[Rfam]
RNA: FMN riboswitch aptamer (RFN element)
RNA sequence: CAAUUCCUUCGGGGCAGGGUGAAAUUCCCGACCGGCGGUGAUGCGCAUAUCGAGCGUUAGCCCGCGAGCCACUUUUGCUGAAAUGAGGCAGAAGUGUGCAGGAUCUGGUGAGAAUCCAGAGCCGACAGUACAGUCUGGAUGGGAGAAGGAUGAC
Numbered sequence: 001c002a003a004u005u006c007c008u009u010c011g012g013g014g015c016a017g018g019g020u021g022a023a024a025u026u027c028c029c030g031a032c033c034g035g036c037g038g039u040g041a042u043g044c045g046c047a048u049a050u051c052g053a054g055c056g057u058u059a060g061c062c063c064g065c066g067a068g069c070c071a072c073u074u075u076u077g078c079u080g081a082a083a084u085g086a087g088g089c090a091g092a093a094g095u096g097u098g099c100a101g102g103a104u105c106u107g108g109u110g111a112g113a114a115u116c117c118a119g120a121g122c123c124g125a126c127a128g129u130a131c132a133g134u135c136u137g138g139a140u141g142g143g144a145g146a147a148g149g150a151u152g153a154c
Stems, first nucleotide, its partner, number of pairs: 005150006017029003031134002033124002035065004060122002070098003104120005126137003